This 229-nucleotide part of an RNA from Thiohalophilus thiocyanatoxydans belongs to the Rfam family "Bacterial large subunit ribosomal RNA". A search with the family's covariance model found it, with a score of 2894 bits. The organism belongs to Thiohalophilus, within Bacteria.
RNA sequence: GACUUACUUCUCAGUGGCAAGGUUAACCGUAUAGGGGAGCCGUAGGGAAACCGAGUCUUAAUAGGGCGAAUCAGUCGCUGGGAGUAGACCCGAAACCGGGCGAUCUAUCCAUGGCCAGGGUGAAGGAGAGGUAACACUCUCUGGAGGCCCGAACCCACUUAUGUUGAAAAAUGAGGGGAUGAGCUGUGGAUCGGAGUGAAAGGCUAAUCAAGCCCGGAGAUAGCUGGUU
Numbered sequence: 001g002a003c004u005u006a007c008u009u010c011u012c013a014g015u016g017g018c019a020a021g022g023u024u025a026a027c028c029g030u031a032u033a034g035g036g037g038a039g040c041c042g043u044a045g046g047g048a049a050a051c052c053g054a055g056u057c058u059u060a061a062u063a064g065g066g067c068g069a070a071u072c073a074g075u076c077g078c079u080g081g082g083a084g085u086a087g088a089c090c091c092g093a094a095a096c097c098g099g100g101c102g103a104u105c106u107a108u109c110c111a112u113g114g115c116c117a118g119g120g121u122g123a124a125g126g127a128g129a130g131g132u133a134a135c136a137c138u139c140u141c142u143g144g145a146g147g148c149c150c151g152a153a154c155c156c157a158c159u160u161a162u163g164u165u166g167a168a169a170a171a172u173g174a175g176g177g178g179a180u181g182a183g184c185u186g187u188g189g190a191u192c193g194g195a196g197u198g199a200a201a202g203g204c205u206a207a208u209c210a211a212g213c214c215c216g217g218a219g220a221u222a223g224c225u226g227g228u229u
Stems, first nucleotide, its partner, number of pairs: 005086003009083010021041004027035002045052002055067004089227002092224001096217006105193001107191009116181001118150004125142006154178003158175005195205003